ALIL pseudoknot: a 117-nucleotide sequence from Spirochaeta isovalerica.
RNA sequence: AGCAUAUUUCACCCAGGCGGAGCUCGACCGCCGAAAGAAAUAAUGAUCGGUUUCAUUGAUGAGAACAGGGAAGAUCAUGGAGUCGAGCCUCUCUGCAAGAAUAUUCAGAUAGCUCCU
Numbered sequence: 001a002g003c004a005u006a007u008u009u010c011a012c013c014c015a016g017g018c019g020g021a022g023c024u025c026g027a028c029c030g031c032c033g034a035a036a037g038a039a040a041u042a043a044u045g046a047u048c049g050g051u052u053u054c055a056u057u058g059a060u061g062a063g064a065a066c067a068g069g070g071a072a073g074a075u076c077a078u079g080g081a082g083u084c085g086a087g088c089c090u091c092u093c094u095g096c097a098a099g100a101a102u103a104u105u106c107a108g109a110u111a112g113c114u115c116c117u
Base pairs, nucleotide, nucleotide: 016032017031018030019029020028079116080115081114082113089112090111092109093108094107095106097104
A reference for the family is Mazauric et al. (2008), "Apical loop-internal loop RNA pseudoknots: a new type of stimulator of -1 translational frameshifting in bacteria", J Biol Chem. The match comes from Rfam's covariance-model search (96 bits).